[Rfam]
RNA sequence: AAAAAAAGGAGCAAUAGCCAAUUUCUUGUUCUAUCAAGAGGGUCGGUAUUGCUCCUUUU
Numbered sequence: 001a002a003a004a005a006a007a008g009g010a011g012c013a014a015u016a017g018c019c020a021a022u023u024u025c026u027u028g029u030u031c032u033a034u035c036a037a038g039a040g041g042g043u044c045g046g047u048a049u050u051g052c053u054c055c056u057u058u059u
Base pairs, nucleotide, nucleotide: 005058006057007056008055009054010053011052012051013050014049015048016047020043023040024039025038026037027036028035
RNA: Plastid-psbA-4 3UTR RNA
Organism: Vernicia fordii